[Rfam]
RNA: c-di-AMP riboswitch aptamer (ydaO/yuaA leader)
Organism: Janibacter cremeus
RNA sequence: ACAUCGGAUCUGCACAAACAGGAAGUGGCAGGAGCGGGGGACCCAGGACCUCUGGCCUCACGGCCUCGGGGUGCAGUCCUUCUCGGCCCGGACACUUCGGGCCACGGACGGGAUGUCUCCAUCCCAACCCGACAGCUAACCCCGCAGGCGCAGGAGAGCUCGAUG
Dot-bracket structure: .(.((...(((...................)))((((((....(.......................)(((.....(((..........................))).(((.........)))...))).........)))))).)).)...............